[Rfam]
Nucleotides: 078
Base pairs, nucleotide, nucleotide: 012037013036017032018031019030020029021028022027040072041071042070043069045068046067047066048063049062050061051060052059053058
Number, partner (000 for none) and nucleotide at each position: 001000a002000u003000a004000c005000u006000c007000u008000a009000a010000u011000g012037g013036c014000a015000a016000a017032c018031u019030c020029g021028u022027u023000g024000c025000a026000a027022a028021a029020u030019g031018a032017g033000g034000a035000c036013g037012c038000a039000a040072a041071g042070u043069g044000a045068c046067a047066g048063c049062a050061c051060a052059g053058g054000c055000g056000g057000g058053u059052c060051u061050g062049u063048g064000g065000g066047c067046u068045g069043c070042a071041u072040u073000a074000c075000u076000g077000a078000g

The family of this 78-nucleotide sequence from Shewanella sp. P1-14-1 is "c-di-GMP-I riboswitch aptamer". Gene Ontology term of the family: cyclic-di-GMP binding. About the family: GEMM was predicted in a large-scale screen for bacterial structured RNA regulatory elements. Lineage of the source: Bacteria > Pseudomonadota > Gammaproteobacteria > Alteromonadales > Shewanella. A search with the family's covariance model found it, with a score of 56 bits.